RNA sequence: GUCUUGUCAAUGAUGUUUUCAAACACAAAUGUCUGAACAAAUGACUUUCUGUGAUUCUAUGUUAUUUUCUGAGACAAGAC
Numbered sequence: 001g002u003c004u005u006g007u008c009a010a011u012g013a014u015g016u017u018u019u020c021a022a023a024c025a026c027a028a029a030u031g032u033c034u035g036a037a038c039a040a041a042u043g044a045c046u047u048u049c050u051g052u053g054a055u056u057c058u059a060u061g062u063u064a065u066u067u068u069c070u071g072a073g074a075c076a077a078g079a080c
Stems, first nucleotide, its partner, number of pairs: 002079007
Rfam assigns this 80-nucleotide sequence from Kryptolebias marmoratus to the family "Small nucleolar RNA SNORD72". It is annotated as a C/D-box small nucleolar RNA. NCBI's taxonomy places the organism under Eukaryota, Neopterygii, Osteoglossocephalai, Ovalentaria, Kryptolebias. Rfam describes the family as follows. snoRNA HBII-240 belongs to the CD family of snoRNAs. It is the human orthologue of the mouse MBII-240 and is predicted to guide 2'O-ribose methylation of the large 28S rRNA at residue U4590. For this family Rfam cites "RNomics: an experimental approach that identifies 201 candidates for novel, small, non-messenger RNAs in mouse" (Huttenhofer et al., EMBO J, 2001).